[Rfam]
RNA sequence: AUUAAUAAUUUAUUGCAACUUCGUAUAAGUUUGGGAAUAUGGCCCAAACGUCUCUACCAGGCAACCGUAAAUUGCCCGACUACGAAGGUUAAACAAACAAUC
Numbered sequence: 001a002u003u004a005a006u007a008a009u010u011u012a013u014u015g016c017a018a019c020u021u022c023g024u025a026u027a028a029g030u031u032u033g034g035g036a037a038u039a040u041g042g043c044c045c046a047a048a049c050g051u052c053u054c055u056a057c058c059a060g061g062c063a064a065c066c067g068u069a070a071a072u073u074g075c076c077c078g079a080c081u082a083c084g085a086a087g088g089u090u091a092a093a094c095a096a097a098c099a100a101u102c
Base pairs, nucleotide, nucleotide: 019087020086021085022084023083024082025081029049030048031047032046033045034044035043058078060076061075062074063073064072